The family of this 137-nucleotide RNA from Aspergillus calidoustus is "A. fumigatus sRNA Afu_254". The literature on the family includes a 2008 paper in Nucleic Acids Res by Jochl et al., "Small ncRNA transcriptome analysis from Aspergillus fumigatus suggests a novel mechanism for regulation of protein synthesis".
[Rfam]
RNA sequence: CUCCAAAGCCUACUACAAAACAACCGGUUCAAACCAACCCAACCACCAACCAACCAUCAAGAUGUCUCCCUGCGCUUGCAACUGCUGCUCCGGUGACUGCAACUCCUGCGCUUGCAGCACCUGCAGCGUAAGUCUCC
Numbered sequence: 001c002u003c004c005a006a007a008g009c010c011u012a013c014u015a016c017a018a019a020a021c022a023a024c025c026g027g028u029u030c031a032a033a034c035c036a037a038c039c040c041a042a043c044c045a046c047c048a049a050c051c052a053a054c055c056a057u058c059a060a061g062a063u064g065u066c067u068c069c070c071u072g073c074g075c076u077u078g079c080a081a082c083u084g085c086u087g088c089u090c091c092g093g094u095g096a097c098u099g100c101a102a103c104u105c106c107u108g109c110g111c112u113u114g115c116a117g118c119a120c121c122u123g124c125a126g127c128g129u130a131a132g133u134c135u136c137c
Base pairs, nucleotide, nucleotide: 071095072094073093078088079087080086099124100123101122108115109114

It is annotated as a small RNA.